[Rfam]
RNA sequence: GAGCAAUGAUGAAAAGGUUUUACUAUUGACCUCCAUAUCUAUGAAGGUUUCUACAUUUGAUGUGAGCUCA
Numbered sequence: 001g002a003g004c005a006a007u008g009a010u011g012a013a014a015a016g017g018u019u020u021u022a023c024u025a026u027u028g029a030c031c032u033c034c035a036u037a038u039c040u041a042u043g044a045a046g047g048u049u050u051c052u053a054c055a056u057u058u059g060a061u062g063u064g065a066g067c068u069c070a
Stems, first nucleotide, its partner, number of pairs: 001069004015032005
The family of this 70-nucleotide RNA sequence from Hipposideros armiger is "Small nucleolar RNA U2-30". It scores 82 bits against the family's covariance model. The family's RNA type in Rfam is C/D-box small nucleolar RNA. A reference for the family is Tycowski et al. (2004), "Guide RNAs with 5' Caps and Novel Box C/D snoRNA-like Domains for Modification of snRNAs in Metazoa", Curr Biol. Its family is annotated with nucleolus and RNA processing in the Gene Ontology. Pairs were carried over by alignment from the consensus structure, which is taken from published work.